[Rfam]
The family of this 63-nucleotide RNA from Oryctolagus cuniculus is "Small nucleolar RNA SNORD43".
From the family's description: U43 is a C/D box small nucleolar RNA that is encoded in intron 1 of the ribosomal protein L3 gene in human and cow. Three other snoRNAs ( U82, U83a and U83b) are also encoded in the same host gene but from different introns. The rice homologue is expressed from a cluster also containing snoR16.
On this family, see Chen et al., Nucleic Acids Res 2003: "The high diversity of snoRNAs in plants: identification and comparative study of 120 snoRNA genes from Oryza sativa".
A search with the family's covariance model found it, with a score of 53 bits.

RNA sequence: AAAUGAUAAUGAACUUAUUGAUGGGUGGGCAGAGACUGUGCACGAAUUGUCAUGUUCUAGUUU
Dot-bracket structure: ((((.......................................................))))